[Rfam]
RNA sequence: UUCCCAUGAAACUGUAAGUCGCUCUGGAUAAGAGCGUCUGCUAAAUGCCUAAAA
Dot-bracket structure: ............((((...((((((.....))))))..))).)...........
This 54-nucleotide RNA sequence from Salmo trutta belongs to the Rfam family "UnaL2 LINE 3' element".
The eel long interspersed element (LINE) UnaL2 and its partner short interspersed element (SINE) share a conserved 3' tail containing a stem-loop that is critical for their retrotransposition.
Pairs were carried over by alignment from the consensus structure, which is taken from published work.
The family's RNA type in Rfam is cis-regulatory element.